[Rfam]
RNA sequence: AAACGAUCUCGUUAUGGCGAGGCUACCUAACAAACAAAAGUUACUGCCGUACUUGCAUGGAGACAGGCUUGUAUUGGUAAAACAGGUAUGAUCGAAUCAAGGUCUUACAAAAGUAACUUUCCGCUUGGAAUACGUUGUUAGAAGCUAAAACCUAAACGUUGGGAUCUACU
Numbered sequence: 001a002a003a004c005g006a007u008c009u010c011g012u013u014a015u016g017g018c019g020a021g022g023c024u025a026c027c028u029a030a031c032a033a034a035c036a037a038a039a040g041u042u043a044c045u046g047c048c049g050u051a052c053u054u055g056c057a058u059g060g061a062g063a064c065a066g067g068c069u070u071g072u073a074u075u076g077g078u079a080a081a082a083c084a085g086g087u088a089u090g091a092u093c094g095a096a097u098c099a100a101g102g103u104c105u106u107a108c109a110a111a112a113g114u115a116a117c118u119u120u121c122c123g124c125u126u127g128g129a130a131u132a133c134g135u136u137g138u139u140a141g142a143a144g145c146u147a148a149a150a151c152c153u154a155a156a157c158g159u160u161g162g163g164a165u166c167u168a169c170u
Stems, first nucleotide, its partner, number of pairs: 005166006011157002013100001016152002021146003027141007040117005046078004056067001058065002086108003091103003119130003
M-box riboswitch aptamer (ykoK leader): a 170-nucleotide RNA from Arsenophonus nasoniae. The match comes from Rfam's covariance-model search (108 bits). Lineage of the source: Bacteria > Pseudomonadota > Gammaproteobacteria > Enterobacterales > Arsenophonus.